[Rfam]
Nucleotides: 169
Base pairs, nucleotide, nucleotide: 001016002015003014004013005012006011029169031167032166036161037160041155042154043153044152045151046150047149048148049147050146051145064144065143066142068140073136074135075134077132079130080129081128082127083126084112085111086110087109090105091104
Number, partner (000 for none) and nucleotide at each position: 001016u002015u003014u004013c005012c006011g007000g008000c009000g010000a011006c012005g013004g014003a015002a016001g017000g018000g019000u020000u021000g022000g023000a024000a025000g026000g027000a028000a029169g030000c031167u032166g033000a034000u035000g036161g037160c038000g039000g040000u041155u042154g043153u044152u045151g046150g047149a048148a049147c050146g051145g052000a053000u054000c055000g056000c057000a058000a059000g060000u061000g062000a063000a064144c065143c066142a067000g068140u069000g070000a071000u072000g073136g074135u075134a076000u077132a078000g079130a080129u081128g082127a083126u084112g085111g086110a087109u088000a089000a090105c091104c092000a093000u094000u095000c096000a097000a098000a099000a100000a101000g102000u103000g104091g105090g106000a107000a108000c109087g110086u111085c112084c113000g114000a115000a116000a117000a118000u119000c120000a121000g122000c123000u124000g125000a126083a127082u128081c129080a130079u131000a132077u133000a134075u135074a136073u137000u138000u139000g140068g141000a142066u143065g144064g145051u146050c147049g148048u149047u150046u151045u152044a153043a154042c155041a156000g157000u158000a159000a160037g161036c162000g163000g164000a165000g166032c167031a168000a169029c